[Rfam]
RNA sequence: GAUGCAUAGAUAAGAAGCACACGAGGGUAUGUUAAGAGUAGUGGGAGAGACCUAAAAUUUUUUUGUUGUGAGCCUAAUUACCAAAACGACUUAUCCUUCCACUGAGCAUC
Dot-bracket structure: (((((....................................................................................................)))))
Numbered sequence: 001g002a003u004g005c006a007u008a009g010a011u012a013a014g015a016a017g018c019a020c021a022c023g024a025g026g027g028u029a030u031g032u033u034a035a036g037a038g039u040a041g042u043g044g045g046a047g048a049g050a051c052c053u054a055a056a057a058u059u060u061u062u063u064u065g066u067u068g069u070g071a072g073c074c075u076a077a078u079u080a081c082c083a084a085a086a087c088g089a090c091u092u093a094u095c096c097u098u099c100c101a102c103u104g105a106g107c108a109u110c
Stems, first nucleotide, its partner, number of pairs: 001110005

Background: Rfam assigns this 110-nucleotide RNA sequence from Macleaya cordata to the family "Small nucleolar RNA Z152/R70/R12/". The family has 9 seed sequences and 604 matches in Rfam 15.1. The organism belongs to Macleaya, within Eukaryota. A search with the family's covariance model found it, with a score of 69 bits. The literature on the family includes a 2001 paper in J Mol Biol by Barneche et al., "Identification of 66 box C/D snoRNAs in Arabidopsis thaliana: extensive gene duplications generated multiple isoforms predicting new ribosomal RNA 2'-O-methylation sites". Gene Ontology terms of the family: nucleolus and RNA processing. By type it is a C/D-box small nucleolar RNA.